[Rfam]
Mammalian CPEB3 ribozyme: a 75-nucleotide RNA sequence from Crocodylus porosus. From the family's description: The mammalian CPEB3 ribozyme is a self cleaving RNA located in the second intron of the CPEB3 gene which belongs to a family of genes regulating messenger RNA polyadenylation. The source organism's lineage runs through Eukaryota, Teleostomi, Dipnotetrapodomorpha, Sauropsida and Crocodylus. Pairs were carried over by alignment from the consensus structure, which is taken from published work.

RNA sequence: UGAGAGCAUUGAGGCUAUAGCAGAAGCGCUCAUGGCAUAGCCAUCUCAGAUUCCAAUAAAUCUGCAAAUUCUGCU
Numbered sequence: 001u002g003a004g005a006g007c008a009u010u011g012a013g014g015c016u017a018u019a020g021c022a023g024a025a026g027c028g029c030u031c032a033u034g035g036c037a038u039a040g041c042c043a044u045c046u047c048a049g050a051u052u053c054c055a056a057u058a059a060a061u062c063u064g065c066a067a068a069u070u071c072u073g074c075u
Stems, first nucleotide, its partner, number of pairs: 013042004019075007026038001028036001047064006
Dot-bracket structure: ............[[[[..((((((((.(.......).)]]]]....((((((......))))))....)))))))